[Rfam]
RNA sequence: UUCGGUUCGGAUAAUUGUGGUUACUAACGGUUCAGUUCGGUUAGUGAGUUGUUAUCAAAAUAAUGGUUCGA
Number, nucleotide and partner (000 for none) at each position: 001u000002u000003c000004g000005g000006u000007u071008c070009g069010g068011a067012u066013a000014a064015u063016u062017g061018u060019g000020g000021u000022u000023a000024c000025u054026a053027a052028c051029g050030g049031u048032u047033c046034a045035g000036u000037u000038c000039g000040g000041u000042u000043a000044g000045u034046g033047a032048g031049u030050u029051g028052u027053u026054a025055u000056c000057a000058a000059a000060a018061u017062a016063a015064u014065g000066g012067u011068u010069c009070g008071a007

The record is a 71-nucleotide RNA from Medicago truncatula, which matches "MIR5271 microRNA precursor family" in Rfam. The family's consensus secondary structure was predicted with RNAalifold.